Shown here is a 109-nucleotide sequence from Notoacmeibacter marinus, a member of the family "Rhizobiales sRNA Atu_At1". It is annotated as a small RNA. It scores 91 bits against the family's covariance model. For this family Rfam cites "Deep sequencing uncovers numerous small RNAs on all four replicons of the plant pathogen Agrobacterium tumefaciens" (Wilms et al., RNA Biol, 2012).
RNA sequence: GGCAAACGCGUGUCAAACGGGCGCGGCGGCACGGUGGACGGAGCGGUUUUCCCGUUUUCUCGCUCCGGCAUCAACGAAUUGGCAGACGAGCACCUGUCCCGUCCGCGUU
Numbered sequence: 001g002g003c004a005a006a007c008g009c010g011u012g013u014c015a016a017a018c019g020g021g022c023g024c025g026g027c028g029g030c031a032c033g034g035u036g037g038a039c040g041g042a043g044c045g046g047u048u049u050u051c052c053c054g055u056u057u058u059c060u061c062g063c064u065c066c067g068g069c070a071u072c073a074a075c076g077a078a079u080u081g082g083c084a085g086a087c088g089a090g091c092a093c094c095u096g097u098c099c100c101g102u103c104c105g106c107g108u109u
Stems, first nucleotide, its partner, number of pairs: 006108004011023004025103003028099002033094004039067007068083002072081001
Dot-bracket structure: .....((((.((((.....)))).(((((...((((..(((((((...............)))))))((..(........))).......))))...)).))).)))).
Lineage of the source: Bacteria > Pseudomonadota > Alphaproteobacteria > Notoacmeibacteraceae > Notoacmeibacter.